[Rfam]
RNA sequence: AAUAGUUGAACUCUGGCUAAGAUUGCCACGUCCUGCGGCAACGUCUGUGUGACCAACAUUUUGUUGG
Numbered sequence: 001a002a003u004a005g006u007u008g009a010a011c012u013c014u015g016g017c018u019a020a021g022a023u024u025g026c027c028a029c030g031u032c033c034u035g036c037g038g039c040a041a042c043g044u045c046u047g048u049g050u051g052a053c054c055a056a057c058a059u060u061u062u063g064u065u066g067g
Stems, first nucleotide, its partner, number of pairs: 011049001013047001015045003025039003029035001053067005
Dot-bracket structure: ..........(.(.(((.......(((.(.....).)))...))).).)...(((((.....)))))
Rfam assigns this 67-nucleotide sequence from Solibacillus sp. R5-41 to the family "Bacillaceae-1 RNA". The base pairs follow the family's consensus structure, which is taken from published work. It is annotated as a small RNA. A search with the family's covariance model found it, with a score of 59 bits.